[Rfam]
Rfam assigns this 77-nucleotide RNA sequence from Jaculus jaculus to the family "mir-147 microRNA precursor family". The match comes from Rfam's covariance-model search (86 bits). The family has 26 seed sequences and 757 matches in Rfam 15.1. Lineage of the source: Eukaryota > Craniata > Tetrapoda > Dipodidae > Jaculus. Gene Ontology terms of the family: RISC complex and miRNA-mediated post-transcriptional gene silencing.

RNA sequence: UAUAAAUCUAGUGGAAACAUUUCUGCACAAACUAGCUGAUGGGUACAGUGUGCGGAAAUGCUUCUGCUGUAUUUUUA
Dot-bracket structure: ((.((((.((((((((.((((((((((((..((.............)))))))))))))).)))))))).)))).))
Numbered sequence: 001u002a003u004a005a006a007u008c009u010a011g012u013g014g015a016a017a018c019a020u021u022u023c024u025g026c027a028c029a030a031a032c033u034a035g036c037u038g039a040u041g042g043g044u045a046c047a048g049u050g051u052g053c054g055g056a057a058a059u060g061c062u063u064c065u066g067c068u069g070u071a072u073u074u075u076u077a
Stems, first nucleotide, its partner, number of pairs: 001077002004074004009069008018060012032048002